[Rfam]
RNA sequence: UAACUAUAACGGCCAUAGCAAAAGCAUUCACAUCAUGGUCCUGUCAGAUUCCAGUGAAUUUGUGAAUUCUGCU
Numbered sequence: 001u002a003a004c005u006a007u008a009a010c011g012g013c014c015a016u017a018g019c020a021a022a023a024g025c026a027u028u029c030a031c032a033u034c035a036u037g038g039u040c041c042u043g044u045c046a047g048a049u050u051c052c053a054g055u056g057a058a059u060u061u062g063u064g065a066a067u068u069c070u071g072c073u
Base pairs, nucleotide, nucleotide: 011040012039013038014037017073018072019071020070022068023067024036045062046061047060048059049058050057051056
The family of this 73-nucleotide RNA from Alligator sinensis is "Mammalian CPEB3 ribozyme". A search with the family's covariance model found it, with a score of 48 bits.